[Rfam]
RNA sequence: AUGUUGGAAGUGAGAAUUGGAUAAAACUAAAUUGAUGGUUAUUAUCUUAGUUAGGGGCGUUCAAUUUAGUUUUCUCCAAUAUCUCACAUUCGAUAU
Numbered sequence: 001a002u003g004u005u006g007g008a009a010g011u012g013a014g015a016a017u018u019g020g021a022u023a024a025a026a027c028u029a030a031a032u033u034g035a036u037g038g039u040u041a042u043u044a045u046c047u048u049a050g051u052u053a054g055g056g057g058c059g060u061u062c063a064a065u066u067u068a069g070u071u072u073u074c075u076c077c078a079a080u081a082u083c084u085c086a087c088a089u090u091c092g093a094u095a096u
Base pairs, nucleotide, nucleotide: 004093005092006091007090008089011086012085013084014083016080017079018078019077020076021075023073024072025071026070027069028068029067030066032064033063
Rfam assigns this 96-nucleotide sequence from Macleaya cordata to the family "MIR2275 microRNA precursor family". The family has 13 seed sequences and 785 matches in Rfam 15.1. The source organism's lineage runs through Eukaryota, Embryophyta, Euphyllophyta, Mesangiospermae and Macleaya.